Background
Shown here is an 85-nucleotide sequence from Priestia koreensis, a member of the family "c-di-GMP-I riboswitch aptamer". Its family is annotated with cyclic-di-GMP binding in the Gene Ontology. The organism belongs to Priestia, within Bacteria. Rfam describes the family as follows. GEMM was predicted in a large-scale screen for bacterial structured RNA regulatory elements.
RNA sequence: AAUCGAAAAAGGCAAACUUAUUGAAAAAUAGGGACGCAAAGCUACGGGCCUAAUGUUUAAAAACGAUGGUAGCCGAGUUACCGAA
Numbered sequence: 001a002a003u004c005g006a007a008a009a010a011g012g013c014a015a016a017c018u019u020a021u022u023g024a025a026a027a028a029u030a031g032g033g034a035c036g037c038a039a040a041g042c043u044a045c046g047g048g049c050c051u052a053a054u055g056u057u058u059a060a061a062a063a064c065g066a067u068g069g070u071a072g073c074c075g076a077g078u079u080a081c082c083g084a085a
Base pairs, nucleotide, nucleotide: 012037013036017032018031019030020029021028022027040079041078042077043076045075046074047073048070049069050068055064056063057062